[Rfam]
RNA sequence: GGGAUGUGAUGAGUGGUCAGUAUUCGCAAUAAAUAUGCGAGAGAUGGGUGUCCGCCCCAGAGCCUGGUUACGACAAUUGGGCACCCUAAUCUUUGUACCAUCUGAUCCC
Numbered sequence: 001g002g003g004a005u006g007u008g009a010u011g012a013g014u015g016g017u018c019a020g021u022a023u024u025c026g027c028a029a030u031a032a033a034u035a036u037g038c039g040a041g042a043g044a045u046g047g048g049u050g051u052c053c054g055c056c057c058c059a060g061a062g063c064c065u066g067g068u069u070a071c072g073a074c075a076a077u078u079g080g081g082c083a084c085c086c087u088a089a090u091c092u093u094u095g096u097a098c099c100a101u102c103u104g105a106u107c108c109c
Base pairs, nucleotide, nucleotide: 001109002108003107004106014100015099016098017097023041024040025039026038027037046086047085048084049083050082051081052080065079066078067077068076
Shown here is a 109-nucleotide sequence from Prunus yedoensis, a member of the family "Small nucleolar RNA Z279/snoR105/snoR108". The match comes from Rfam's covariance-model search (86 bits). Pairs were carried over by alignment from the consensus structure, which was predicted with PFOLD. Gene Ontology terms of the family: RNA processing and nucleolus. Rfam classes the family as a C/D-box small nucleolar RNA. Its Rfam clan is "snoU13 clan". This family includes the plant snoRNAs known as Z279, snoR105 and snoR108.